[Rfam]
Nucleotides: 124
Stems, first nucleotide, its partner, number of pairs: 007041003011037007046078010088119011
Number, partner (000 for none) and nucleotide at each position: 001000g002000g003000a004000a005000u006000u007041c008040g009039a010000c011037g012036c013035g014034a015033c016032g017031u018000c019000a020000u021000c022000c023000u024000c025000c026000u027000c028000c029000c030000g031017g032016c033015g034014u035013c036012g037011u038000a039009u040008c041007g042000a043000u044000a045000a046078g047077a048076u049075u050074g051073g052072c053071a054070a055069c056000a057000c058000u059000c060000c061000u062000c063000c064000u065000c066000c067000c068000g069055g070054u071053u072052g073051c074050c075049a076048a077047u078046c079000g080000c081000c082000c083000a084000u085000a086000u087000g088119a089118c090117g091116c092115c093114c094113g095112c096111c097110g098109g099000a100000c101000c102000u103000c104000c105000u106000c107000c108000c109098c110097c111096g112095g113094c114093g115092g116091g117090c118089g119088u120000u121000a122000u123000u124000u
About this RNA
Alphaproteobacterial ar14: a 124-nucleotide sequence from Sinorhizobium alkalisoli. From the family's description: Smr14C2 was renamed NfeR1 (Nodule Formation Efficiency RNA) highly expressed in salt stress and during the symbiotic interaction on legume roots. It scores 118 bits against the family's covariance model. Taxonomically the source falls in Sinorhizobium (Bacteria, Pseudomonadota, Alphaproteobacteria, Hyphomicrobiales). The family's RNA type in Rfam is small RNA. On this family, see del Val et al., RNA Biol 2012: "A survey of sRNA families in alpha-proteobacteria". Rfam 15.1 lists 784 matches to the family in 332 species.